[Rfam]
RNA sequence: UCCCAGCAUCAAGAGCCGGGCCUCGAAACCCGGCACCAACCUGCUCCCAAGCAAGGUGGUGCCUUCGUGAAAACGAAGGGAUGUGGCCAGAACCGGCAACUUCGGGAAGAGCC
Numbered sequence: 001u002c003c004c005a006g007c008a009u010c011a012a013g014a015g016c017c018g019g020g021c022c023u024c025g026a027a028a029c030c031c032g033g034c035a036c037c038a039a040c041c042u043g044c045u046c047c048c049a050a051g052c053a054a055g056g057u058g059g060u061g062c063c064u065u066c067g068u069g070a071a072a073a074c075g076a077a078g079g080g081a082u083g084u085g086g087c088c089a090g091a092a093c094c095g096g097c098a099a100c101u102u103c104g105g106g107a108a109g110a111g112c113c
Stems, first nucleotide, its partner, number of pairs: 006084005015034006035060003040056003043052003047109001086097003
RNA: SAM-I/IV (S-adenosyl methionine) riboswitch aptamer